[Rfam]
RNA sequence: AUGAGAAUGAUGAUGAAAUCAGAAGGAUUCCCAAUGAUUUAUCUUUGUUUAAAGAGAAUGUGAUCUUGAAUACAACUACUUCUGACUCAU
Number, nucleotide and partner (000 for none) at each position: 001a090002u089003g088004a087005g086006a000007a000008u000009g000010a000011u000012g000013a000014u000015g000016a000017a000018a000019u000020c000021a000022g000023a000024a000025g000026g000027a000028u000029u000030c000031c000032c000033a000034a000035u000036g000037a000038u000039u000040u000041a000042u000043c000044u000045u000046u000047g000048u000049u000050u000051a000052a000053a000054g000055a000056g000057a000058a000059u000060g000061u000062g000063a000064u000065c000066u000067u000068g000069a000070a000071u000072a000073c000074a000075a000076c000077u000078a000079c000080u000081u000082c000083u000084g000085a000086c005087u004088c003089a002090u001
Rfam assigns this 90-nucleotide RNA from Mikania micrantha to the family "Small nucleolar RNA R12". A search with the family's covariance model found it, with a score of 62 bits. Rfam's curators write: snoR12 is a C/D box small nucleolar RNA, which acts as a methylation guide for 25S ribosomal RNA in plants. snoR12 has been alternatively named snoZ44 in Arabidopsis and snoZ131 in rice. The base pairs follow the family's consensus structure, which was predicted with PFOLD.